[Rfam]
RNA: Plastid-psbM 3UTR RNA
RNA sequence: UGGAUAGUAUGGUAGAAAGAAAUAUAUGAAUCCUUCUUUCUACCAUACUAUCUAUUAAUGUUAUUGUAGUGUAUAAGGUUGUGUAUAAAGAUACAGGC
Number, nucleotide and partner (000 for none) at each position: 001u000002g000003g052004a051005u050006a049007g048008u047009a046010u045011g044012g043013u042014a041015g040016a039017a038018a037019g036020a035021a000022a000023u000024a000025u000026a000027u000028g000029a000030a000031u000032c000033c000034u000035u020036c019037u018038u017039u016040c015041u014042a013043c012044c011045a010046u009047a008048c007049u006050a005051u004052c003053u000054a000055u000056u000057a000058a000059u000060g000061u000062u000063a000064u000065u000066g000067u000068a000069g000070u000071g000072u000073a000074u000075a000076a000077g000078g000079u000080u000081g000082u000083g000084u000085a000086u000087a000088a000089a000090g000091a000092u000093a000094c000095a000096g000097g000098c000